[Rfam]
RNA sequence: GCAACCUGAAGCUCGCGCACGGCAACCUGGUGGUGUUCCGUUCGCUGCUCGGCAUCUCGUGGAUGUGGUUCUUCGGCGCGGUGUUCCUGUCGAUGUUCCCGGCCUUCGCGAAGGAGGUGCUG
Numbered sequence: 001g002c003a004a005c006c007u008g009a010a011g012c013u014c015g016c017g018c019a020c021g022g023c024a025a026c027c028u029g030g031u032g033g034u035g036u037u038c039c040g041u042u043c044g045c046u047g048c049u050c051g052g053c054a055u056c057u058c059g060u061g062g063a064u065g066u067g068g069u070u071c072u073u074c075g076g077c078g079c080g081g082u083g084u085u086c087c088u089g090u091c092g093a094u095g096u097u098c099c100c101g102g103c104c105u106u107c108g109c110g111a112a113g114g115a116g117g118u119g120c121u122g
Base pairs, nucleotide, nucleotide: 010049011048012047014044015043017041018040021037022036023035024034026032051121052120053119054118055117057115058114060112063105065103067099068098071095074092075091076090077089078088080087081086